The family of this 97-nucleotide sequence from Clytia hemisphaerica is "Vault RNA". It scores 37 bits against the family's covariance model. Rfam classes the family as a non-coding RNA gene. The source organism's lineage runs through Eukaryota, Opisthokonta, Leptothecata, Clytiidae and Clytia. Rfam 15.1 lists 2,873 matches to the family in 431 species.
RNA sequence: GUGCAGGCUUAGUCUAAAGGUUCCUUCGUUCAAUUAUGACGUCAGCGCUAUCUUGGUGUGAGUUCAACUCUGACCUGGGACACAGUCCUGCACUUUU
Numbered sequence: 001g002u003g004c005a006g007g008c009u010u011a012g013u014c015u016a017a018a019g020g021u022u023c024c025u026u027c028g029u030u031c032a033a034u035u036a037u038g039a040c041g042u043c044a045g046c047g048c049u050a051u052c053u054u055g056g057u058g059u060g061a062g063u064u065c066a067a068c069u070c071u072g073a074c075c076u077g078g079g080a081c082a083c084a085g086u087c088c089u090g091c092a093c094u095u096u097u
Stems, first nucleotide, its partner, number of pairs: 002092006012081004018076003025062005